The family of this 178-nucleotide RNA from Arcticibacterium luteifluviistationis is "Group II catalytic intron D1-D4-3". The source organism's lineage runs through Bacteria, Cytophagia, Cytophagales, Leadbetterellaceae and Arcticibacterium. It scores 95 bits against the family's covariance model.
[Rfam]
RNA sequence: GGUCAGGUGACUGGCCAUCUGAAGUAAGCCAAACCACGUUGUCUGUACUGACGAACAGGAACUACAUACUGAGGCUAUUAGGUCGGAUGAGGUAACACAUGCUGCCGAAGUCCAAAGCUCUGAAAAGAGACAGUACCGAAAUAGUAGAUGUAGCAGCGAUAGACAAAAGGAUAUUCGC
Numbered sequence: 001g002g003u004c005a006g007g008u009g010a011c012u013g014g015c016c017a018u019c020u021g022a023a024g025u026a027a028g029c030c031a032a033a034c035c036a037c038g039u040u041g042u043c044u045g046u047a048c049u050g051a052c053g054a055a056c057a058g059g060a061a062c063u064a065c066a067u068a069c070u071g072a073g074g075c076u077a078u079u080a081g082g083u084c085g086g087a088u089g090a091g092g093u094a095a096c097a098c099a100u101g102c103u104g105c106c107g108a109a110g111u112c113c114a115a116a117g118c119u120c121u122g123a124a125a126a127g128a129g130a131c132a133g134u135a136c137c138g139a140a141a142u143a144g145u146a147g148a149u150g151u152a153g154c155a156g157c158g159a160u161a162g163a164c165a166a167a168a169g170g171a172u173a174u175u176c177g178c
Base pairs, nucleotide, nucleotide: 001016002015003014004013005012006011028178029177031175032174037170040165041164042163043162044161045160046158048156049155050154062153063152064151065150066149067148074145075144076143078140079139081137082136083135085113086112087111088110091106092105093104094103